[Rfam]
RNA sequence: CCUGUCCACACAGGUCGGGAUGUGACCACCGCACUCGUGCGGGGUUGAACCACACA
Numbered sequence: 001c002c003u004g005u006c007c008a009c010a011c012a013g014g015u016c017g018g019g020a021u022g023u024g025a026c027c028a029c030c031g032c033a034c035u036c037g038u039g040c041g042g043g044g045u046u047g048a049a050c051c052a053c054a055c056a
Stems, first nucleotide, its partner, number of pairs: 001014005017051002024046004

Annotation: Shown here is a 56-nucleotide sequence from Natronomonas salsuginis, a member of the family "eL15-Euryarchaeota ribosomal protein leader".